Rfam assigns this 93-nucleotide sequence from Aquarana catesbeiana to the family "Z30 small nucleolar RNA".
[Rfam]
RNA sequence: AGUGGUGAUGAGUUUGAUUUGGUCUAACCUGGUAUUGCGGGAGGUAAGUCCGCACUGACUAGGAAAUGAUGAUGUAAUUUUCUCUCUGAGCUG
Numbered sequence: 001a002g003u004g005g006u007g008a009u010g011a012g013u014u015u016g017a018u019u020u021g022g023u024c025u026a027a028c029c030u031g032g033u034a035u036u037g038c039g040g041g042a043g044g045u046a047a048g049u050c051c052g053c054a055c056u057g058a059c060u061a062g063g064a065a066a067u068g069a070u071g072a073u074g075u076a077a078u079u080u081u082c083u084c085u086c087u088g089a090g091c092u093g
Stems, first nucleotide, its partner, number of pairs: 002091002037053004
Overview
Rfam links the family to the GO terms RNA processing and nucleolus. Taxonomically the source falls in Aquarana (Eukaryota, Metazoa, Tetrapoda, Ranoidea).